The family of this 82-nucleotide RNA sequence from Scophthalmus maximus is "let-7 microRNA precursor family".
Rfam links the family to the GO terms miRNA-mediated post-transcriptional gene silencing and RISC complex.
Rfam describes the family as follows. This family represents the microRNAs (miRNA) let-7 and mir-98. let-7 was identified from a study of developmental timing in C. elegans, and was later shown to be part of a much larger class of non-coding RNAs termed miRNAs.
Pairs were carried over by alignment from the consensus structure, which was predicted with RNAalifold.
The family is grouped with related families in Rfam's "let-7 microRNA precursor clan".
RNA sequence: UGAGGCUGAGGUAGUAGAUUGAAUAGUUGUGGGGUUUGUGUCCUCCCUCUGAGAUAACUAUGCAAUCUACUGUCUUUCCUAA
Number, nucleotide and partner (000 for none) at each position: 001u082002g000003a080004g079005g078006c000007u000008g076009a075010g074011g073012u072013a071014g070015u069016a068017g067018a066019u065020u064021g063022a000023a061024u060025a059026g058027u057028u000029g000030u000031g000032g047033g046034g045035u000036u000037u000038g000039u000040g000041u000042c000043c000044u000045c034046c033047c032048u000049c000050u000051g000052a000053g000054a000055u000056a000057a027058c026059u025060a024061u023062g000063c021064a020065a019066u018067c017068u016069a015070c014071u013072g012073u011074c010075u009076u008077u000078c005079c004080u003081a000082a001